[Rfam]
RNA: mir-275 microRNA precursor family
RNA sequence: AUGUCUCUAGUCAUGCGCGCUAAUCAGUGACCGGGGCUGGUUGUUUCCGUUCAGUCAGGUACCUGAAGUAGCGCGCGUGGUGCGAGACG
Numbered sequence: 001a002u003g004u005c006u007c008u009a010g011u012c013a014u015g016c017g018c019g020c021u022a023a024u025c026a027g028u029g030a031c032c033g034g035g036g037c038u039g040g041u042u043g044u045u046u047c048c049g050u051u052c053a054g055u056c057a058g059g060u061a062c063c064u065g066a067a068g069u070a071g072c073g074c075g076c077g078u079g080g081u082g083c084g085a086g087a088c089g
Stems, first nucleotide, its partner, number of pairs: 010081003014077001016075007030060003035056004